[Rfam]
RNA sequence: GGGUCUCUCUAGGCAGACCAGAUUUGAGCCCGGGAGCUCUCUGGCUAUCUAGGGAACCCAC
Numbered sequence: 001g002g003g004u005c006u007c008u009c010u011a012g013g014c015a016g017a018c019c020a021g022a023u024u025u026g027a028g029c030c031c032g033g034g035a036g037c038u039c040u041c042u043g044g045c046u047a048u049c050u051a052g053g054g055a056a057c058c059c060a061c
Base pairs, nucleotide, nucleotide: 001059002058003057004056006055007054008053009052010051011050012049013048015046016045018044019043020042021041022040026039027038028037029036
RNA: Trans-activation response element (TAR)